[Rfam]
RNA: Group II catalytic intron D1-D4-3
RNA sequence: UCCAUCGCGAGGUGGAAUCUGAAGGAAGGCGGCGGCAAAUCUCCGACCCGAGGGUCACGAACUUCAAUUGAGGCUAGCAACAGCUGGGUGAGUCUGCACAACAAGACAAAGCCCAUGCUACCAAAGGCUGUUGAGAGUAAAUGGAGCGGGUAGAUGGAGAGAAAGGCAACGUU
Numbered sequence: 001u002c003c004a005u006c007g008c009g010a011g012g013u014g015g016a017a018u019c020u021g022a023a024g025g026a027a028g029g030c031g032g033c034g035g036c037a038a039a040u041c042u043c044c045g046a047c048c049c050g051a052g053g054g055u056c057a058c059g060a061a062c063u064u065c066a067a068u069u070g071a072g073g074c075u076a077g078c079a080a081c082a083g084c085u086g087g088g089u090g091a092g093u094c095u096g097c098a099c100a101a102c103a104a105g106a107c108a109a110a111g112c113c114c115a116u117g118c119u120a121c122c123a124a125a126g127g128c129u130g131u132u133g134a135g136a137g138u139a140a141a142u143g144g145a146g147c148g149g150g151u152a153g154a155u156g157g158a159g160a161g162a163a164a165g166g167c168a169a170c171g172u173u
Stems, first nucleotide, its partner, number of pairs: 001016006028173004036165001040160006046151005062146005073138003079132006086114004092107004